A member of the RNA family "Bacterial RNase P class A" from Pelomonas sp. Root1444, 330 nucleotides long. Rfam classes the family as a ribozyme. Rfam links the family to the GO terms tRNA processing, dimeric ribonuclease P complex and ribonuclease P activity. The base pairs follow the family's consensus structure, which is taken from published work. It scores 207 bits against the family's covariance model.
RNA sequence: GAAGCAAGCCAGACCGCCGCUGGGGCAAGCAUGGAAACAUGGCCCUGGAGGAAGGUCCGGACUGCAAAGAGCGACGUAGCGGGUAACGCCCGUCCACCGCAAGGUGCGGAUCAGAGCCACAGAGACGAGCCGGUUAAGUCCGGAGUGAAACGCGGCAAUCUCUACGUGCAGCAACACCAAGUAGGCCAGCGUUGAUGCGGCUCGCAGAGCUGGCGGGUAGGUGGCACCGAGCCGGGCAGCGAUGCCCGGCCCAGAGGAAUGGCGGUCACAUCGCCCAACCCGUUAGGGGCGGGCGGUGCACAGAAUCCGGCCUAUCGGCUUGCUUCACUU
Numbered sequence: 001g002a003a004g005c006a007a008g009c010c011a012g013a014c015c016g017c018c019g020c021u022g023g024g025g026c027a028a029g030c031a032u033g034g035a036a037a038c039a040u041g042g043c044c045c046u047g048g049a050g051g052a053a054g055g056u057c058c059g060g061a062c063u064g065c066a067a068a069g070a071g072c073g074a075c076g077u078a079g080c081g082g083g084u085a086a087c088g089c090c091c092g093u094c095c096a097c098c099g100c101a102a103g104g105u106g107c108g109g110a111u112c113a114g115a116g117c118c119a120c121a122g123a124g125a126c127g128a129g130c131c132g133g134u135u136a137a138g139u140c141c142g143g144a145g146u147g148a149a150a151c152g153c154g155g156c157a158a159u160c161u162c163u164a165c166g167u168g169c170a171g172c173a174a175c176a177c178c179a180a181g182u183a184g185g186c187c188a189g190c191g192u193u194g195a196u197g198c199g200g201c202u203c204g205c206a207g208a209g210c211u212g213g214c215g216g217g218u219a220g221g222u223g224g225c226a227c228c229g230a231g232c233c234g235g236g237c238a239g240c241g242a243u244g245c246c247c248g249g250c251c252c253a254g255a256g257g258a259a260u261g262g263c264g265g266u267c268a269c270a271u272c273g274c275c276c277a278a279c280c281c282g283u284u285a286g287g288g289g290c291g292g293g294c295g296g297u298g299c300a301c302a303g304a305a306u307c308c309g310g311c312c313u314a315u316c317g318g319c320u321u322g323c324u325u326c327a328c329u330u
Stems, first nucleotide, its partner, number of pairs: 001326010011315001012267007020048007028040001053313003057310005062171004069203004074167005079093005094108001095106004109162002114160002116156003175223004185214006196206003231250008
Dot-bracket structure: ((((((((((((((((((.(((((((.(...........).)))))))....[[[.[[[[[((((...[[[[.((((((((((.....)))))(((((....)))).)((...(((((...................................)))..)))))))))))))...((((......((((((.....(((.]]]])))..)))))).....)))).......((((((((....))))))))..........)))))))......................................]]]]]]]].).))))))))))....